This 104-nucleotide RNA from Clostridium manihotivorum belongs to the Rfam family "Purine riboswitch aptamer". Taxonomically the source falls in Clostridium (Bacteria, Bacillati, Eubacteriales, Clostridiaceae). The base pairs follow the family's consensus structure, which is taken from published work. Rfam describes the family as follows. Riboswitches are metabolite binding domains within certain messenger RNAs that serve as precision sensors for their corresponding targets. Allosteric rearrangement of mRNA structure is mediated by ligand binding, and this results in modulation of gene expression. A class of riboswitches that selectively recognises guanine and becomes saturated at concentrations as low as 5 nM. In Bacillus subtilis, this mRNA motif is located on at least five separate transcriptional units that together encode 17 genes that are mostly involved in purine transport and purine nucleotide biosynthesis. It has also been shown that some members of this family are specific for adenine instead.
[Rfam]
RNA sequence: AUAAGGUAAAUAAUGUUCACUUAUAUAAGUCUAGUAAUAGGGGCUAGAUGUAUCUACCGAGCUACCGUAAAAAGCUCUUGGCUAUAGGUGUAAUGAUGAAUCAU
Numbered sequence: 001a002u003a004a005g006g007u008a009a010a011u012a013a014u015g016u017u018c019a020c021u022u023a024u025a026u027a028a029g030u031c032u033a034g035u036a037a038u039a040g041g042g043g044c045u046a047g048a049u050g051u052a053u054c055u056a057c058c059g060a061g062c063u064a065c066c067g068u069a070a071a072a073a074g075c076u077c078u079u080g081g082c083u084a085u086a087g088g089u090g091u092a093a094u095g096a097u098g099a100a101u102c103a104u
Base pairs, nucleotide, nucleotide: 018090019089020088021087022086023085024084025083029049030048031047032046033045034044035043058080059077060076061075062074063073